[Rfam]
Insect-Specific Flavivirus 3' UTR repeats Ra: a 60-nucleotide sequence from Quang Binh virus. Rfam's curators write: 3' UTR in insect specific flavivirus families present three to four repeats of conserved element Ra. The sequence is in the family's curated seed alignment. By type it is a cis-regulatory element.
RNA sequence: GCCCCCGCAAGGAGGGGUGUGUGUUUCACGCCCCUGGGAGUUAACGAUUCUCCGGCCCCA
Numbered sequence: 001g002c003c004c005c006c007g008c009a010a011g012g013a014g015g016g017g018u019g020u021g022u023g024u025u026u027c028a029c030g031c032c033c034c035u036g037g038g039a040g041u042u043a044a045c046g047a048u049u050c051u052c053c054g055g056c057c058c059c060a
Stems, first nucleotide, its partner, number of pairs: 005055003013035008036052006
A reference for the family is Hoshino et al. (2007), "Genetic characterization of a new insect flavivirus isolated from Culex pipiens mosquito in Japan", Virology.